[Rfam]
RNA sequence: CUUGAGCGAGCCCAGCCACAGCGGCUGCUCGCGGUCCUGCCCGUAGGUGGCGAGCAGCGCCUGCGCCUC
Dot-bracket structure: .............((((.....)))).(.(.((...((..(((....)))..))...))...).)....
Numbered sequence: 001c002u003u004g005a006g007c008g009a010g011c012c013c014a015g016c017c018a019c020a021g022c023g024g025c026u027g028c029u030c031g032c033g034g035u036c037c038u039g040c041c042c043g044u045a046g047g048u049g050g051c052g053a054g055c056a057g058c059g060c061c062u063g064c065g066c067c068u069c
Stems, first nucleotide, its partner, number of pairs: 014026004028065001030063001032059002037054002041050003
This 69-nucleotide sequence from Actinosynnema pretiosum belongs to the Rfam family "ASpks TB sRNA". On this family, see Arnvig and Young, Mol Microbiol 2009: "Identification of small RNAs in Mycobacterium tuberculosis". Taxonomically the source falls in Actinosynnema pretiosum (Bacteria, Actinomycetes, Pseudonocardiales, Pseudonocardiaceae). The base pairs follow the family's consensus structure, which is taken from published work.